[Rfam]
msiK RNA: a 57-nucleotide RNA sequence from Microlunatus parietis. Pairs were carried over by alignment from the consensus structure, which is taken from published work. The source organism's lineage runs through Bacteria, Actinomycetota, Actinomycetes, Propionibacteriaceae and Microlunatus.

RNA sequence: CGCUGUUGUUUCCACUACGGAUCGUCGGGCACGUACCUGCCCGUGGAAAGGAAUGUG
Numbered sequence: 001c002g003c004u005g006u007u008g009u010u011u012c013c014a015c016u017a018c019g020g021a022u023c024g025u026c027g028g029g030c031a032c033g034u035a036c037c038u039g040c041c042c043g044u045g046g047a048a049a050g051g052a053a054u055g056u057g
Stems, first nucleotide, its partner, number of pairs: 009049006026043006
About this RNA
The family's RNA type in Rfam is cis-regulatory element.